[Rfam]
Source information:
This 81-nucleotide RNA from Xenopus tropicalis belongs to the Rfam family "Small nucleolar RNA SNORD121A". On this family, see Yang et al., Nucleic Acids Res 2006: "snoSeeker: an advanced computational package for screening of guide and orphan snoRNA genes in the human genome". The family has 26 seed sequences and 881 matches in Rfam 15.1. Gene Ontology terms of the family: nucleolus and RNA processing. NCBI's taxonomy places the organism under Eukaryota, Bilateria, Dipnotetrapodomorpha, Xenopodinae, Silurana. The match comes from Rfam's covariance-model search (52 bits).

RNA sequence: GAUGGAGAGACAAUGAUGGGAGAAUUCCAAGCACAUAUCUGAGCUUUGUGUUGAGAUUACUUGUCACUGAGUCUUUCCUAC
Number, nucleotide and partner (000 for none) at each position: 001g081002a000003u000004g078005g077006a076007g000008a074009g073010a072011c071012a000013a000014u000015g000016a000017u000018g000019g000020g000021a000022g000023a000024a000025u000026u000027c000028c000029a000030a000031g000032c000033a000034c000035a000036u000037a000038u000039c000040u000041g000042a000043g000044c000045u000046u000047u000048g000049u000050g000051u000052u000053g000054a000055g000056a000057u000058u000059a000060c000061u000062u000063g000064u000065c000066a000067c000068u000069g000070a000071g011072u010073c009074u008075u000076u006077c005078c004079u000080a000081c001